[Rfam]
RNA: mir-34 microRNA precursor family
Nucleotides: 069
Base pairs, nucleotide, nucleotide: 002068003067005065006064008062009061011059012058013057014056015055016054017053019051020050021049023048024047025046026045027044028043029042030041
Number, partner (000 for none) and nucleotide at each position: 001000a002068c003067a004000c005065g006064g007000u008062g009061g010000c011059a012058g013057u014056g015055u016054g017053g018000u019051u020050a021049g022000c023048u024047g025046g026045u027044u028043g029042u030041g031000u032000u033000u034000u035000u036000u037000u038000g039000a040000u041030c042029a043028c044027g045026a046025c047024c048023a049021c050020u051019a052000u053017c054016c055015a056014u057013a058012c059011u060000c061009c062008c063000u064006c065005c066000a067003u068002g069000a